[Rfam]
RNA: tRNA
RNA sequence: GCCCUUGUAGCUCAGUGGAUAGAGUGCCGCGCUACGAACGCGGAGGCCCAGGUUCGAGUCCUGGCAGGGGUA
Numbered sequence: 001g002c003c004c005u006u007g008u009a010g011c012u013c014a015g016u017g018g019a020u021a022g023a024g025u026g027c028c029g030c031g032c033u034a035c036g037a038a039c040g041c042g043g044a045g046g047c048c049c050a051g052g053u054u055c056g057a058g059u060c061c062u063g064g065c066a067g068g069g070g071u072a
Stems, first nucleotide, its partner, number of pairs: 001071007010025004027043005048064005